[Rfam]
RNA sequence: UGUGCCCGUCGCAACUGGCGCAACGGGUGGACUACCACCGGGGAGCGACGCAGCAGCAGACUACGGGUCGGACGCCUGGGCCCCCGGU
Number, nucleotide and partner (000 for none) at each position: 001u000002g000003u055004g054005c053006c000007c050008g049009u048010c047011g046012c045013a000014a000015c042016u041017g076018g075019c074020g073021c000022a000023a000024c000025g000026g000027g038028u037029g036030g035031a000032c000033u000034a000035c030036c029037a028038c027039c000040g000041g016042g015043g000044a000045g012046c011047g010048a009049c008050g007051c000052a000053g005054c004055a003056g000057c000058a000059g000060a000061c000062u000063a000064c000065g083066g082067g081068u080069c079070g000071g000072a000073c020074g019075c018076c017077u000078g000079g069080g068081c067082c066083c065084c000085c000086g000087g000088u000